[Rfam]
RNA: Purine riboswitch aptamer
Organism: Sporosarcina pasteurii
Nucleotides: 100
Base pairs, nucleotide, nucleotide: 018086023081024080025079029049030048031047032046033045034044035043058076059075060074061073062072
Number, partner (000 for none) and nucleotide at each position: 001000a002000u003000a004000u005000a006000a007000u008000a009000a010000a011000u012000u013000a014000a015000a016000u017000a018086u019000a020000a021000a022000c023081g024080u025079a026000u027000a028000a029049c030048c031047u032046c033045u034044a035043g036000a037000a038000u039000a040000u041000g042000g043035c044034u045033g046032g047031a048030g049029g050000g051000u052000c053000u054000c055000u056000a057000c058076c059075a060074g061073g062072a063000a064000c065000c066000g067000a068000a069000a070000a071000a072062u073061c074060c075059u076058g077000a078000u079025u080024a081023c082000a083000a084000a085000a086018a087000g088000a089000u090000g091000u092000u093000a094000u095000u096000u097000u098000u099000g100000u